RNA: PyrR binding site
RNA sequence: CGAUCCUUUAAUUAUAGUCCCGUGAGGCUAAAAAGGAAACGGAAUAUGCUCGUACUAGAGAUACGUGUAUCCAAAACCCUUUUUUCCUCAUGGAAAAAAGGGUUUUUCUU
Dot-bracket structure: ...((((((.....(((((......))))).))))))........((((.((((.......)))).))))...((((((((((((((....)))))))))))))).....